[Rfam]
RNA sequence: UGCUGUGAUGAUGUAAUUUGCGUCUUAUCCAGUGCUCAGCGACAGUUGCCUGCUGUCAGCCUGCUGGCACUGCUGAGCUGAAGACCCCUUCAUUCUGAGCA
Numbered sequence: 001u002g003c004u005g006u007g008a009u010g011a012u013g014u015a016a017u018u019u020g021c022g023u024c025u026u027a028u029c030c031a032g033u034g035c036u037c038a039g040c041g042a043c044a045g046u047u048g049c050c051u052g053c054u055g056u057c058a059g060c061c062u063g064c065u066g067g068c069a070c071u072g073c074u075g076a077g078c079u080g081a082a083g084a085c086c087c088c089u090u091c092a093u094u095c096u097g098a099g100c101a
Stems, first nucleotide, its partner, number of pairs: 001101003021083001023081002030072005039064002041057005
Source information: This 101-nucleotide RNA from Eolophus roseicapilla belongs to the Rfam family "Small nucleolar RNA SNORD16". Its Rfam clan is "SNORD16 clan". NCBI's taxonomy places the organism under Eukaryota, Opisthokonta, Euteleostomi, Cacatuidae, Eolophus. The match comes from Rfam's covariance-model search (82 bits).